This 590-nucleotide part of an RNA from uncultured crenarchaeote belongs to the Rfam family "Archaeal large subunit ribosomal RNA". Pairs were carried over by alignment from the consensus structure, which is taken from published work. The source organism's lineage runs through Archaea, Thermoproteati and Thermoproteota. The family has 91 seed sequences and 2,955 matches in Rfam 15.1.
[Rfam]
RNA sequence: CAAAGACGCCGGUUGGUGGAUGACUCGGCUUGAUAAGCGAAGAAGGACGUGGCAAGCUGCGAUAAGCCUGGGGUAGGUGCAUGCGACCGUCGAUCCCGGGAUGUCCGAAUGAGGUCUCUCUUUACACUCCCUUGCUUUGUUGCUUGGGAGAGCGAACCGUCCGAAGUGAAGCAUCUGAGUAGGACGAGGAGGAGAAAUCAAUUGAGAUUCCGUCAGUAGCGGCGAGCGAAAGCGGAACAGCCCAAACUGAAUCUGCCGUGGUAACACGGCAGAGAUGUGGUGUUGCGGUUAUAGCGCAUAGGAUCCUGCCUUUGGAGCUGAAGUGUACUGGAAUGUACCGGAACAGAGGGUGAUACCCCCGUAGGCAAAUGGAGGCGGGAUUCUGCUAUAUCCAGAGUAGCUGGCCUUGGCAGUGGCCAGUGAAGGUGGGUGAAAGUAGUAUCCAAGGCUAAAUAUUCAUCAAGACCGAUAGAAAACUAGUACCGUGAGGGAAAGUUGAAAAGUACCCCGGAAGGGGGGUUAAAAGCGCCUGAAACCAACCGGUUACAGACGUGUAUGGCUCGAAAGGAUAAAAUCUAGAGUCAUACGUU
Numbered sequence: 001c002a003a004a005g006a007c008g009c010c011g012g013u014u015g016g017u018g019g020a021u022g023a024c025u026c027g028g029c030u031u032g033a034u035a036a037g038c039g040a041a042g043a044a045g046g047a048c049g050u051g052g053c054a055a056g057c058u059g060c061g062a063u064a065a066g067c068c069u070g071g072g073g074u075a076g077g078u079g080c081a082u083g084c085g086a087c088c089g090u091c092g093a094u095c096c097c098g099g100g101a102u103g104u105c106c107g108a109a110u111g112a113g114g115u116c117u118c119u120c121u122u123u124a125c126a127c128u129c130c131c132u133u134g135c136u137u138u139g140u141u142g143c144u145u146g147g148g149a150g151a152g153c154g155a156a157c158c159g160u161c162c163g164a165a166g167u168g169a170a171g172c173a174u175c176u177g178a179g180u181a182g183g184a185c186g187a188g189g190a191g192g193a194g195a196a197a198u199c200a201a202u203u204g205a206g207a208u209u210c211c212g213u214c215a216g217u218a219g220c221g222g223c224g225a226g227c228g229a230a231a232g233c234g235g236a237a238c239a240g241c242c243c244a245a246a247c248u249g250a251a252u253c254u255g256c257c258g259u260g261g262u263a264a265c266a267c268g269g270c271a272g273a274g275a276u277g278u279g280g281u282g283u284u285g286c287g288g289u290u291a292u293a294g295c296g297c298a299u300a301g302g303a304u305c306c307u308g309c310c311u312u313u314g315g316a317g318c319u320g321a322a323g324u325g326u327a328c329u330g331g332a333a334u335g336u337a338c339c340g341g342a343a344c345a346g347a348g349g350g351u352g353a354u355a356c357c358c359c360c361g362u363a364g365g366c367a368a369a370u371g372g373a374g375g376c377g378g379g380a381u382u383c384u385g386c387u388a389u390a391u392c393c394a395g396a397g398u399a400g401c402u403g404g405c406c407u408u409g410g411c412a413g414u415g416g417c418c419a420g421u422g423a424a425g426g427u428g429g430g431u432g433a434a435a436g437u438a439g440u441a442u443c444c445a446a447g448g449c450u451a452a453a454u455a456u457u458c459a460u461c462a463a464g465a466c467c468g469a470u471a472g473a474a475a476a477c478u479a480g481u482a483c484c485g486u487g488a489g490g491g492a493a494a495g496u497u498g499a500a501a502a503g504u505a506c507c508c509c510g511g512a513a514g515g516g517g518g519g520u521u522a523a524a525a526g527c528g529c530c531u532g533a534a535a536c537c538a539a540c541c542g543g544u545u546a547c548a549g550a551c552g553u554g555u556a557u558g559g560c561u562c563g564a565a566a567g568g569a570u571a572a573a574a575u576c577u578a579g580a581g582u583c584a585u586a587c588g589u590u
Base pairs, nucleotide, nucleotide: 008544009543010542011541012540013539014538015537016536022530023496024495027467028466029464030463031462032461033460034459035457036456045106046105047104048061049060050059067100068099069098070097071096072095076088077087078086111120112119113118127150128149129148130147131146157188158186159185160184161183162182168175169174198205199204209236210235211234212233213232219227220226239450240449241448242447247280248279249278257268258267259266260265292388293387294386295385302382303381304380305379317366318365319364323339325338326337327336328335348360349359350358400421401420402419403418404417405416406415428444429443430442431441432440483490484489553588554587555586556585557584558583559582560581561580562579567577568576569575